[Rfam]
RNA sequence: GUAUCCCCUAGAGUUCCUCUGAGCACUUCACUGGGAAUCUUCCACCGGCCUGAAAGAGUUUUAUCAUUCCCACUGAAGUGUUUGGGGGAACUCCUGGUGUUAU
Numbered sequence: 001g002u003a004u005c006c007c008c009u010a011g012a013g014u015u016c017c018u019c020u021g022a023g024c025a026c027u028u029c030a031c032u033g034g035g036a037a038u039c040u041u042c043c044a045c046c047g048g049c050c051u052g053a054a055a056g057a058g059u060u061u062u063a064u065c066a067u068u069c070c071c072a073c074u075g076a077a078g079u080g081u082u083u084g085g086g087g088g089a090a091c092u093c094c095u096g097g098u099g100u101u102a103u
Stems, first nucleotide, its partner, number of pairs: 005099001007097002011093010022083002024080007032072004
A member of the RNA family "mir-395 microRNA precursor family" from Salix dunnii, 103 nucleotides long. Gene Ontology terms of the family: RISC complex and miRNA-mediated post-transcriptional gene silencing. On this family, see Jones-Rhoades and Bartel, Mol Cell 2004: "Computational Identification of Plant MicroRNAs and Their Targets, Including a Stress-Induced miRNA". The base pairs follow the family's consensus structure, which was predicted with PFOLD. mir-395 was identified in both Arabidopsis thaliana and Oryza sativa computationally and was later experimentally verified. mir-395 is thought to target mRNAs coding for ATP sulphurylases. The mature sequence is excised from the 3' arm of the hairpin. A search with the family's covariance model found it, with a score of 69 bits. Lineage of the source: Eukaryota > fabids > Malpighiales > Salicaceae > Salix.